A member of the RNA family "mir-927 microRNA precursor family" from Tenebrio molitor, 82 nucleotides long.
[Rfam]
Nucleotides: 082
Stems, first nucleotide, its partner, number of pairs: 010076003014073008023064003028059007036051002
Number, partner (000 for none) and nucleotide at each position: 001000u002000g003000a004000g005000c006000c007000a008000c009000g010076u011075u012074u013000c014073g015072g016071u017070u018069u019068a020067g021066a022000a023064u024063u025062c026000c027000u028059a029058c030057g031056c032055u033054u034053u035000a036051c037050c038000g039000u040000a041000u042000a043000u044000u045000a046000a047000a048000c049000u050037g051036g052000c053034a054033a055032a056031g057030c058029g059028u060000u061000u062025g063024g064023a065000u066021u067020c068019u069018g070017a071016a072015u073014c074012g075011a076010a077000c078000c079000c080000u081000g082000g
The family's consensus secondary structure was predicted with RNAalifold. Taxonomically the source falls in Tenebrio (Eukaryota, Arthropoda, Pancrustacea, Aparaglossata). For this family Rfam cites "Evolutionary flux of canonical microRNAs and mirtrons in Drosophila" (Berezikov et al., Nat Genet, 2010).